[Rfam]
This 266-nucleotide RNA from Macrococcoides bohemicum belongs to the Rfam family "Bacterial large signal recognition particle RNA". The signal recognition particle (SRP) is a universally conserved ribonucleoprotein involved in the co-translational targeting of proteins to membranes.

RNA sequence: CCGUGCUAAGUGGGGAGGUAGCGGUUCCCUGUACUUGCAAUCCGCUUAGGCAAGACCUAAUCCCUUUGCCUCGGGUAACAAGUUGUGAGGUCUGACCUGAAUACGUAGUGUUGAGAGAUCGGUCCUAGCCAAUAUAAACCCAUGAAUCAUGUCAGGUCCGGAAGGAAGCAGCAUUAAGUGGUACUUUGUAUGUGACUGGGGUAGCCGGUUUUGAGCUGUCGACUUGGGUAACGCUUGUGCUUGUUAUUCAAAGCAAAGGUGCACGG
Numbered sequence: 001c002c003g004u005g006c007u008a009a010g011u012g013g014g015g016a017g018g019u020a021g022c023g024g025u026u027c028c029c030u031g032u033a034c035u036u037g038c039a040a041u042c043c044g045c046u047u048a049g050g051c052a053a054g055a056c057c058u059a060a061u062c063c064c065u066u067u068g069c070c071u072c073g074g075g076u077a078a079c080a081a082g083u084u085g086u087g088a089g090g091u092c093u094g095a096c097c098u099g100a101a102u103a104c105g106u107a108g109u110g111u112u113g114a115g116a117g118a119u120c121g122g123u124c125c126u127a128g129c130c131a132a133u134a135u136a137a138a139c140c141c142a143u144g145a146a147u148c149a150u151g152u153c154a155g156g157u158c159c160g161g162a163a164g165g166a167a168g169c170a171g172c173a174u175u176a177a178g179u180g181g182u183a184c185u186u187u188g189u190a191u192g193u194g195a196c197u198g199g200g201g202u203a204g205c206c207g208g209u210u211u212u213g214a215g216c217u218g219u220c221g222a223c224u225u226g227g228g229u230a231a232c233g234c235u236u237g238u239g240c241u242u243g244u245u246a247u248u249c250a251a252a253g254c255a256a257a258g259g260u261g262c263a264c265g266g
Stems, first nucleotide, its partner, number of pairs: 001266006008058001010056002012030006019023001034054005063259007073249005079243005085238005093230002097227004102222001105220001107217003115212009124200005130192002133190005140181004149174004157166003

By type it is a non-coding RNA gene. The base pairs follow the family's consensus structure, which is taken from published work.